A member of the RNA family "MIR7486 microRNA precursor family" from Gossypium aridum, 88 nucleotides long.
[Rfam]
RNA sequence: CUCAAGGAAGCACUUUGCCUACGUGGACAUAAAGCGUGCCCUUAAGGACGCGUUUUUUUGUCCACGUAGACAAAACGCUUCCUUGAGG
Numbered sequence: 001c002u003c004a005a006g007g008a009a010g011c012a013c014u015u016u017g018c019c020u021a022c023g024u025g026g027a028c029a030u031a032a033a034g035c036g037u038g039c040c041c042u043u044a045a046g047g048a049c050g051c052g053u054u055u056u057u058u059u060g061u062c063c064a065c066g067u068a069g070a071c072a073a074a075a076c077g078c079u080u081c082c083u084u085g086a087g088g
Stems, first nucleotide, its partner, number of pairs: 001087011014074004019069003023065007031057001032055007040047002
The base pairs follow the family's consensus structure, which was predicted with RNAalifold.
The family has 9 seed sequences and 10,132 matches in Rfam 15.1.